Rfam assigns this 74-nucleotide RNA sequence from Caenorhabditis elegans to the family "mir-234 microRNA precursor family". A reference for the family is Lim et al. (2003), "The microRNAs of Caenorhabditis elegans", Genes Dev. NCBI's taxonomy places the organism under Eukaryota, Eumetazoa, Chromadorea, Rhabditida, Caenorhabditis.
RNA sequence: UCAAACGGUAUUCCAGAGUUGAUAAUAAAAAUGCGUCAGUCCGCAAUCUAUUAUUGCUCGAGAAUACCCUUUGA
Numbered sequence: 001u002c003a004a005a006c007g008g009u010a011u012u013c014c015a016g017a018g019u020u021g022a023u024a025a026u027a028a029a030a031a032u033g034c035g036u037c038a039g040u041c042c043g044c045a046a047u048c049u050a051u052u053a054u055u056g057c058u059c060g061a062g063a064a065u066a067c068c069c070u071u072u073g074a
Stems, first nucleotide, its partner, number of pairs: 008067006017058003021055007